[Rfam]
RNA sequence: ACCUAGGGUAGAGGAGCUAUUUACUAUUAGUACUUAAAAGGAACUGGCAAGUGAUGAUCUUUAAGGAAAGGAGAAAUAGCCGAAGAGAUAGCAACGGCAGAAGUUAUCUCUGGUCAUGAAUAGAACAUAUUCAUGAUUGUCACUAUAAGUGGAGAGCUACAAGGUAG
Numbered sequence: 001a002c003c004u005a006g007g008g009u010a011g012a013g014g015a016g017c018u019a020u021u022u023a024c025u026a027u028u029a030g031u032a033c034u035u036a037a038a039a040g041g042a043a044c045u046g047g048c049a050a051g052u053g054a055u056g057a058u059c060u061u062u063a064a065g066g067a068a069a070g071g072a073g074a075a076a077u078a079g080c081c082g083a084a085g086a087g088a089u090a091g092c093a094a095c096g097g098c099a100g101a102a103g104u105u106a107u108c109u110c111u112g113g114u115c116a117u118g119a120a121u122a123g124a125a126c127a128u129a130u131u132c133a134u135g136a137u138u139g140u141c142a143c144u145a146u147a148a149g150u151g152g153a154g155a156g157c158u159a160c161a162a163g164g165u166a167g
Stems, first nucleotide, its partner, number of pairs: 008160004016080007024073002033065006040058001084111009095100001112138011140152005

This 167-nucleotide RNA from Clostridium paridis belongs to the Rfam family "Lysine riboswitch aptamer".
Gene Ontology term of the family: lysine biosynthetic process.
The base pairs follow the family's consensus structure, which is taken from published work.